RNA: Selenocysteine insertion sequence 1
Organism: Danionella cerebrum
RNA sequence: GUGGCUCAAUGAAGGCCUGCGCUGCAAACAGAACUCUGUCGGCGCAGGCUCGAUGCUCAGCCUC
Number, nucleotide and partner (000 for none) at each position: 001g064002u000003g062004g061005c060006u000007c000008a000009a000010u000011g000012a000013a000014g050015g049016c048017c047018u046019g045020c044021g043022c042023u041024g000025c000026a000027a000028a000029c038030a037031g036032a000033a000034c000035u000036c031037u030038g029039u000040c000041g023042g022043c021044g020045c019046a018047g017048g016049c015050u014051c000052g000053a000054u000055g000056c000057u000058c000059a000060g005061c004062c003063u000064c001